[Rfam]
RNA sequence: GAAAUUAUUUUUAAUGUAAGUGAGGCGUCCUUAUGAAAAUAUCUAAACCGGCAUAUAUGGUUUUACUUGUUGUUGGCUUGGUUUUUGUUUUUUUGGGACUAUCUAAUAUCGGAAUUUCUAUUUUUUGGGACUUUAGCGACUUAGAAAAUAUGCUGGUUGGCUCUUUGCUAAUCAUCAUUGGGCUUAUUACACUUAGAGUUCGAUAUACAUUUAAAAAAAGAGGAUAGAAAAGCACUGCAAAUUAUGAUUGCAGUGCUUUUCUA
Numbered sequence: 001g002a003a004a005u006u007a008u009u010u011u012u013a014a015u016g017u018a019a020g021u022g023a024g025g026c027g028u029c030c031u032u033a034u035g036a037a038a039a040u041a042u043c044u045a046a047a048c049c050g051g052c053a054u055a056u057a058u059g060g061u062u063u064u065a066c067u068u069g070u071u072g073u074u075g076g077c078u079u080g081g082u083u084u085u086u087g088u089u090u091u092u093u094u095g096g097g098a099c100u101a102u103c104u105a106a107u108a109u110c111g112g113a114a115u116u117u118c119u120a121u122u123u124u125u126u127g128g129g130a131c132u133u134u135a136g137c138g139a140c141u142u143a144g145a146a147a148a149u150a151u152g153c154u155g156g157u158u159g160g161c162u163c164u165u166u167g168c169u170a171a172u173c174a175u176c177a178u179u180g181g182g183c184u185u186a187u188u189a190c191a192c193u194u195a196g197a198g199u200u201c202g203a204u205a206u207a208c209a210u211u212u213a214a215a216a217a218a219a220g221a222g223g224a225u226a227g228a229a230a231a232g233c234a235c236u237g238c239a240a241a242u243u244a245u246g247a248u249u250g251c252a253g254u255g256c257u258u259u260u261c262u263a
Stems, first nucleotide, its partner, number of pairs: 006226007017213006024206001027099005035092007045084006051077002055073003059067002112201006120149010151177002154174008227262001229260001230258011
RNA: Listeria sRNA rli40
Organism: Listeria innocua